[Rfam]
RNA sequence: GUAGAUGCUCAUUCCAUUUUUAUGCUCGCGGUAACGCCUCAUAAUGCCGGGAAUGACGCAGAGCCGUUUACGGUGCUUAUCGUCCACCAGAAAGAUGUCGCUCACGCCUCAUCAGACACCAUGGACACAACGUUGAGUGAAGCACCUUUGUUGUCCGAAUGACCUGUUUUAACGCCCGCUGAGUUCAGCGGGCGUUUUUUU
Numbered sequence: 001g002u003a004g005a006u007g008c009u010c011a012u013u014c015c016a017u018u019u020u021u022a023u024g025c026u027c028g029c030g031g032u033a034a035c036g037c038c039u040c041a042u043a044a045u046g047c048c049g050g051g052a053a054u055g056a057c058g059c060a061g062a063g064c065c066g067u068u069u070a071c072g073g074u075g076c077u078u079a080u081c082g083u084c085c086a087c088c089a090g091a092a093a094g095a096u097g098u099c100g101c102u103c104a105c106g107c108c109u110c111a112u113c114a115g116a117c118a119c120c121a122u123g124g125a126c127a128c129a130a131c132g133u134u135g136a137g138u139g140a141a142g143c144a145c146c147u148u149u150g151u152u153g154u155c156c157g158a159a160u161g162a163c164c165u166g167u168u169u170u171a172a173c174g175c176c177c178g179c180u181g182a183g184u185u186c187a188g189c190g191g192g193c194g195u196u197u198u199u200u201u
Base pairs, nucleotide, nucleotide: 001064002063006060007059008058009056010055011054012053015051017050018043026036072146073145074144075143076142077141078140082126083125084124085123086122094113095112096111097110153163154162155161171196172195173194174193175192176191177190178189179188180187181186

Record summary:
The record is a 201-nucleotide sequence from Shimwellia blattae, which matches "GlmZ RNA activator of glmS mRNA" in Rfam. Rfam describes the family as follows. This RNA was discovered in E. coli during a large scale screen. The sraJ gene was expressed in early logarithmic phase, but its level decreased with cell growth. Specific cleavage products of this RNA were found. Identified in Yersinia pseudotuberculosis as Ysr248/153/sR016. The base pairs follow the family's consensus structure, which is taken from published work. On this family, see Islam et al., EMBO J 2023: "Structure of a bacterial ribonucleoprotein complex central to the control of cell envelope biogenesis". The source organism's lineage runs through Bacteria, Pseudomonadati, Enterobacterales, Enterobacteriaceae and Shimwellia blattae. By type it is a small RNA.